[Rfam]
RNA sequence: GAAAAGGGCCAGUUGGCUAUAUAUACACGGUGCACCGCUUAAGUUGUGCACCGUAUGGACAUCAAGACAUAUGGCUGGCAAAAUUUAUGAACGUUUCAAUAGGGUUGGCAUGCUUUGCCUACUCUAAA
Numbered sequence: 001g002a003a004a005a006g007g008g009c010c011a012g013u014u015g016g017c018u019a020u021a022u023a024u025a026c027a028c029g030g031u032g033c034a035c036c037g038c039u040u041a042a043g044u045u046g047u048g049c050a051c052c053g054u055a056u057g058g059a060c061a062u063c064a065a066g067a068c069a070u071a072u073g074g075c076u077g078g079c080a081a082a083a084u085u086u087a088u089g090a091a092c093g094u095u096u097c098a099a100u101a102g103g104g105u106u107g108g109c110a111u112g113c114u115u116u117g118c119c120u121a122c123u124c125u126a127a128a
Base pairs, nucleotide, nucleotide: 008079009078010077011076012075017030018029020027031050032049033048034047035046037044038043051074052073053072054071055070056069057068100126101125102124103123104122105121107119108118109117110116
Dot-bracket structure: .......(((((....((.(......).))(((((.((....)).)))))(((((((..........))))))))))))....................((((((.((((.....)))).))))))..

The record is a 128-nucleotide RNA from Chara braunii, which matches "U11 spliceosomal RNA" in Rfam. Gene Ontology terms of the family: pre-mRNA 5'-splice site binding, mRNA 5'-splice site recognition and U11 snRNP. For this family Rfam cites "Additional low-abundance human small nuclear ribonucleoproteins: U11, U12, etc" (Montzka and Steitz, Proc Natl Acad Sci U S A, 1988). The base pairs follow the family's consensus structure, which is taken from published work. The match comes from Rfam's covariance-model search (52 bits). NCBI's taxonomy places the organism under Eukaryota, Streptophyta, Charales, Characeae, Chara. It is annotated as a spliceosomal small nuclear RNA.